[Rfam]
RNA sequence: CAUGUCAGCGCGAGUUGCUGGCGUGGCAGCAAAUCUCAUCCUAGAGGACGCGCUUUGUUGCCGUGUCAGCAACUCACGCUGACAUGG
Numbered sequence: 001c002a003u004g005u006c007a008g009c010g011c012g013a014g015u016u017g018c019u020g021g022c023g024u025g026g027c028a029g030c031a032a033a034u035c036u037c038a039u040c041c042u043a044g045a046g047g048a049c050g051c052g053c054u055u056u057g058u059u060g061c062c063g064u065g066u067c068a069g070c071a072a073c074u075c076a077c078g079c080u081g082a083c084a085u086g087g
Stems, first nucleotide, its partner, number of pairs: 001086010012075010023064011035052001037050001040047002
Shown here is an 87-nucleotide sequence from Gossypium lobatum, a member of the family "MIR7486 microRNA precursor family". Pairs were carried over by alignment from the consensus structure, which was predicted with RNAalifold.